[Rfam]
RNA sequence: GUCUGAAUGCACUGUAAGUCGCUUUGGAUAAAAGCGUCUGCUAAAUACAUACA
Numbered sequence: 001g002u003c004u005g006a007a008u009g010c011a012c013u014g015u016a017a018g019u020c021g022c023u024u025u026g027g028a029u030a031a032a033a034g035c036g037u038c039u040g041c042u043a044a045a046u047a048c049a050u051a052c053a
Stems, first nucleotide, its partner, number of pairs: 013043001014041003020036006

The family of this 53-nucleotide sequence from Cyprinus carpio is "UnaL2 LINE 3' element". The family has 30 seed sequences and 493,311 matches in Rfam 15.1. Rfam classes the family as a cis-regulatory element. A search with the family's covariance model found it, with a score of 56 bits. Taxonomically the source falls in Cyprinus carpio (Eukaryota, Opisthokonta, Teleostomi, Cyprinidae).